[Rfam]
RNA sequence: CCGCCCGUCGCAUCAAGGAACACGAUUGAAGUCAUGAAGCUUACGGAUAGAUUACAUUAGUGAUUUAAAAGUAAACUGAAUGGUUUUUAUCUUACCAUGAUGAAGUCGUAACAAGGUUUUCGUAGGUGAACCUGCAGAAGGAUCAAGC
Numbered sequence: 001c002c003g004c005c006c007g008u009c010g011c012a013u014c015a016a017g018g019a020a021c022a023c024g025a026u027u028g029a030a031g032u033c034a035u036g037a038a039g040c041u042u043a044c045g046g047a048u049a050g051a052u053u054a055c056a057u058u059a060g061u062g063a064u065u066u067a068a069a070a071g072u073a074a075a076c077u078g079a080a081u082g083g084u085u086u087u088u089a090u091c092u093u094a095c096c097a098u099g100a101u102g103a104a105g106u107c108g109u110a111a112c113a114a115g116g117u118u119u120u121c122g123u124a125g126g127u128g129a130a131c132c133u134g135c136a137g138a139a140g141g142a143u144c145a146a147g148c
Stems, first nucleotide, its partner, number of pairs: 001115001003112001006108002009105001011102005017096002024091003028087008038077002041074004048067008117140004122135005
Background: Rfam assigns this 148-nucleotide part of an RNA from Percolomonas cosmopolitus to the family "Eukaryotic small subunit ribosomal RNA". Its Rfam clan is "SSU clan". The literature on the family includes a 2001 paper in Science by Yusupov et al., "Crystal structure of the ribosome at 5.5 A resolution". It is one of the family's seed sequences. The base pairs follow the family's consensus structure, which is taken from published work.